Shown here is a 119-nucleotide RNA sequence from Methanosarcina acetivorans, a member of the family "Archaeal Small RNA 41". A search with the family's covariance model found it, with a score of 45 bits.
RNA sequence: GUCUAUAGAACAGACAUGGAUAAGUGAAAAGAUCUACAAAAUCUGUGGAUGGCACCUGCAAUGCUUGGAAUUCCUCACCUGUGAUAUAUGGGCAGGUGGGGAGCCAUAGGUGCGAGGAA
Numbered sequence: 001g002u003c004u005a006u007a008g009a010a011c012a013g014a015c016a017u018g019g020a021u022a023a024g025u026g027a028a029a030a031g032a033u034c035u036a037c038a039a040a041a042u043c044u045g046u047g048g049a050u051g052g053c054a055c056c057u058g059c060a061a062u063g064c065u066u067g068g069a070a071u072u073c074c075u076c077a078c079c080u081g082u083g084a085u086a087u088a089u090g091g092g093c094a095g096g097u098g099g100g101g102a103g104c105c106a107u108a109g110g111u112g113c114g115a116g117g118a119a
Base pairs, nucleotide, nucleotide: 008015023044024043027042055116057114058113059112060111064109065108071103072102073101074100076098077097078096079095080094081093082092